Rfam assigns this 121-nucleotide RNA sequence from Streptomyces mobaraensis to the family "Glycine riboswitch aptamer". A search with the family's covariance model found it, with a score of 61 bits. The source organism's lineage runs through Bacteria, Actinomycetota, Actinomycetes, Kitasatosporales and Streptomyces.

RNA sequence: GGACCCCGCGCGGGAGAGUCCCCCAGGAGCCGGACGGGCAUUGCCCCGACGGAUCCGUCGGGGGCGCCGAAGGAGCAAAUCCUCCCCGGAAUCUCUCAGGCACACGUACCGCGCGGACGAG
Numbered sequence: 001g002g003a004c005c006c007c008g009c010g011c012g013g014g015a016g017a018g019u020c021c022c023c024c025a026g027g028a029g030c031c032g033g034a035c036g037g038g039c040a041u042u043g044c045c046c047c048g049a050c051g052g053a054u055c056c057g058u059c060g061g062g063g064g065c066g067c068c069g070a071a072g073g074a075g076c077a078a079a080u081c082c083u084c085c086c087c088g089g090a091a092u093c094u095c096u097c098a099g100g101c102a103c104a105c106g107u108a109c110c111g112c113g114c115g116g117a118c119g120a121g
Base pairs, nucleotide, nucleotide: 006116007115008114009113010112011111012110013109020064021063022062023061066101067100068099069097070096073095074094075093080088